The record is a 64-nucleotide RNA sequence from Silurus meridionalis, which matches "Selenocysteine insertion sequence 1" in Rfam. It is annotated as a cis-regulatory element. A reference for the family is Walczak et al. (1996), "A novel RNA structural motif in the selenocysteine insertion element of eukaryotic selenoprotein mRNAs", RNA.
RNA sequence: GUGGCUUUAAUGAUGUCAGGUGCAGAAACUACGCUGUAGUGGCACCUGCCUGAUCCUCAGCCAA
Numbered sequence: 001g002u003g004g005c006u007u008u009a010a011u012g013a014u015g016u017c018a019g020g021u022g023c024a025g026a027a028a029c030u031a032c033g034c035u036g037u038a039g040u041g042g043c044a045c046c047u048g049c050c051u052g053a054u055c056c057u058c059a060g061c062c063a064a
Stems, first nucleotide, its partner, number of pairs: 002063004015050001017048007029039003